[Rfam]
RNA: mir-208 microRNA precursor family
RNA sequence: UCUAACAAGGAAGCUUUUGGCUCGGGUUAUAUUUUAGAAUGGCAGUGUAUAAGACGAGCAAAAAGCUUGUUGGUUGGAGG
Dot-bracket structure: ..((((.((.((((((((.(..((..((((((..............))))))..))..).)))))))).)).))))....